[Rfam]
RNA: ASdes TB sRNA
RNA sequence: AGCUGGAUCGGGUCGACGGCCCGGGAGGUCAGCAGGUAGUCGCGGAUCGCGAUGCCGUGCCGACCCUC
Numbered sequence: 001a002g003c004u005g006g007a008u009c010g011g012g013u014c015g016a017c018g019g020c021c022c023g024g025g026a027g028g029u030c031a032g033c034a035g036g037u038a039g040u041c042g043c044g045g046a047u048c049g050c051g052a053u054g055c056c057g058u059g060c061c062g063a064c065c066c067u068c
Stems, first nucleotide, its partner, number of pairs: 004063001006061001008059001011030003017025001035056004040052005
Dot-bracket structure: ...(.(.(..(((...(.......)..)))....((((.(((((...)))))))))..).).).....